This 581-nucleotide part of an RNA belongs to the Rfam family "Bacterial small subunit ribosomal RNA".
[Rfam]
RNA sequence: UGACGGGGACCUGCACAAGCAGUGGAGUAUGUUGUUUAAUUCGAAGCAACGCGAAAAACCUUACCAAGGCUUGACAUAUUUGGUGCCUCCCUCAGAAAUGAAGGGGGGCUAUACCAAAAACAGGUGCUGCAUGGCUGUCGUCAGCUCGUGUCGUGAGAUGUUGGGUUAAGUCCCUCAACGAGCGCAACCCUCUUCUUUAGUUGUUAACAUUAAGUUGAAUACUCUAGAGAUACUGCCAGUUUUAAGCUGGAGGAAGGUGGGGAUGACGUCAAGUCAUCAUGGCCCUUAUGCCUUGGGCUACAAAUGUACUACAAUGGCAACUACAAAGAGCUGCAAAGGGGUGACCCUAAGCGAAUCUCAAAAAGUUGUCUCAGUUCGGAUUGCUCUCUGCAACUCGAGAGCAUGAAGUCGGAAUUGCUAGUAAUCGGAGAUCAGAACGCUCCGGUGAAUACGUUCCCAGGUCUUGUACACACCGCCCGUCAAGAUCCAGGAGUGAUUUCUACUCAAAGAUGGUGUACCAACCUGCAAAGGGGGAAUCCAUCUAAAGUGGGGGUUGUGACUGGGUUUAAGUCGUAACAAGG
Numbered sequence: 001u002g003a004c005g006g007g008g009a010c011c012u013g014c015a016c017a018a019g020c021a022g023u024g025g026a027g028u029a030u031g032u033u034g035u036u037u038a039a040u041u042c043g044a045a046g047c048a049a050c051g052c053g054a055a056a057a058a059c060c061u062u063a064c065c066a067a068g069g070c071u072u073g074a075c076a077u078a079u080u081u082g083g084u085g086c087c088u089c090c091c092u093c094a095g096a097a098a099u100g101a102a103g104g105g106g107g108g109c110u111a112u113a114c115c116a117a118a119a120a121c122a123g124g125u126g127c128u129g130c131a132u133g134g135c136u137g138u139c140g141u142c143a144g145c146u147c148g149u150g151u152c153g154u155g156a157g158a159u160g161u162u163g164g165g166u167u168a169a170g171u172c173c174c175u176c177a178a179c180g181a182g183c184g185c186a187a188c189c190c191u192c193u194u195c196u197u198u199a200g201u202u203g204u205u206a207a208c209a210u211u212a213a214g215u216u217g218a219a220u221a222c223u224c225u226a227g228a229g230a231u232a233c234u235g236c237c238a239g240u241u242u243u244a245a246g247c248u249g250g251a252g253g254a255a256g257g258u259g260g261g262g263a264u265g266a267c268g269u270c271a272a273g274u275c276a277u278c279a280u281g282g283c284c285c286u287u288a289u290g291c292c293u294u295g296g297g298c299u300a301c302a303a304a305u306g307u308a309c310u311a312c313a314a315u316g317g318c319a320a321c322u323a324c325a326a327a328g329a330g331c332u333g334c335a336a337a338g339g340g341g342u343g344a345c346c347c348u349a350a351g352c353g354a355a356u357c358u359c360a361a362a363a364a365g366u367u368g369u370c371u372c373a374g375u376u377c378g379g380a381u382u383g384c385u386c387u388c389u390g391c392a393a394c395u396c397g398a399g400a401g402c403a404u405g406a407a408g409u410c411g412g413a414a415u416u417g418c419u420a421g422u423a424a425u426c427g428g429a430g431a432u433c434a435g436a437a438c439g440c441u442c443c444g445g446u447g448a449a450u451a452c453g454u455u456c457c458c459a460g461g462u463c464u465u466g467u468a469c470a471c472a473c474c475g476c477c478c479g480u481c482a483a484g485a486u487c488c489a490g491g492a493g494u495g496a497u498u499u500c501u502a503c504u505c506a507a508a509g510a511u512g513g514u515g516u517a518c519c520a521a522c523c524u525g526c527a528a529a530g531g532g533g534g535a536a537u538c539c540a541u542c543u544a545a546a547g548u549g550g551g552g553g554u555u556g557u558g559a560c561u562g563g564g565u566u567u568a569a570g571u572c573g574u575a576a577c578a579a580g581g
Stems, first nucleotide, its partner, number of pairs: 001470002003467003007464007015454002019418005024312001026310008034301002040055004064296007077120001080117005088105003092101003107112001123285002126283004132279002134274003137270001139268002144183006150159003163174003189262004194230007204219002208217002233253002236250005316370007328359003333352002338347003377408001382403007424446007473580001475577001478573002483567008493557012509542005516536001518534002522531002